glmS glucosamine-6-phosphate activated ribozyme aptamer: a 146-nucleotide RNA from Calorimonas adulescens.
RNA sequence: AAAACUAAUAAAGCGCCUGGGCCUUACAUGGCUUACGAGGUCAGGGUUUAUCGAGUUAUAGGCGGGUGCCCUGCGGCAAACCACUGCCGUUAAAGGUCCGACAAAACCUGUGGAAACGCAGGCACAAACCGGGCCAGGUGGUCCAA
Numbered sequence: 001a002a003a004a005c006u007a008a009u010a011a012a013g014c015g016c017c018u019g020g021g022c023c024u025u026a027c028a029u030g031g032c033u034u035a036c037g038a039g040g041u042c043a044g045g046g047u048u049u050a051u052c053g054a055g056u057u058a059u060a061g062g063c064g065g066g067u068g069c070c071c072u073g074c075g076g077c078a079a080a081c082c083a084c085u086g087c088c089g090u091u092a093a094a095g096g097u098c099c100g101a102c103a104a105a106a107c108c109u110g111u112g113g114a115a116a117c118g119c120a121g122g123c124a125c126a127a128a129c130c131g132g133g134c135c136a137g138g139u140g141g142u143c144c145a146a
Base pairs, nucleotide, nucleotide: 020033021032022031023030042073043072044071045070046069051062052061054059074089075088076087077086078085095135096134097133098132099131100130107122108121109120110119111118112117
Background: This entry contains a glucosamine-6-phosphate activated ribozyme that is found in the mRNA for GlmS. GlmS is an enzyme that uses fructose-6-phosphate and glutamine to generate glucosamine-6-phosphate. For this family Rfam cites "Evidence for preorganization of the glmS ribozyme ligand binding pocket" (Hampel and Tinsley, Biochemistry, 2006). A search with the family's covariance model found it, with a score of 80 bits. By type it is a riboswitch. The source organism's lineage runs through Bacteria, Bacillati, Bacillota, Thermoanaerobacterales and Calorimonas.